[Rfam]
RNA: Actinobacteria sRNA Ms_IGR-5
RNA sequence: ACACGGGAAAGGAGGUGGUCCGGAAGAUGAAGUCUUGUUGGACGCGUGAGGUGGCUGCCCGCUAGCAGCAACCGCGUGAGCGAAGUACUGCUCGCGAAUCCACAGCAGCUACCCGACCCGCAGGCGAUCCGGUCGUCACGUCCACCGGAGCGGGCCUCCUCGGAGGUUCACGCCUGCGGGUCGCUGCAU
Numbered sequence: 001a002c003a004c005g006g007g008a009a010a011g012g013a014g015g016u017g018g019u020c021c022g023g024a025a026g027a028u029g030a031a032g033u034c035u036u037g038u039u040g041g042a043c044g045c046g047u048g049a050g051g052u053g054g055c056u057g058c059c060c061g062c063u064a065g066c067a068g069c070a071a072c073c074g075c076g077u078g079a080g081c082g083a084a085g086u087a088c089u090g091c092u093c094g095c096g097a098a099u100c101c102a103c104a105g106c107a108g109c110u111a112c113c114c115g116a117c118c119c120g121c122a123g124g125c126g127a128u129c130c131g132g133u134c135g136u137c138a139c140g141u142c143c144a145c146c147g148g149a150g151c152g153g154g155c156c157u158c159c160u161c162g163g164a165g166g167u168u169c170a171c172g173c174c175u176g177c178g179g180g181u182c183g184c185u186g187c188a189u
Stems, first nucleotide, its partner, number of pairs: 014059006060096003064092003068088001070086001073082003114183013128149006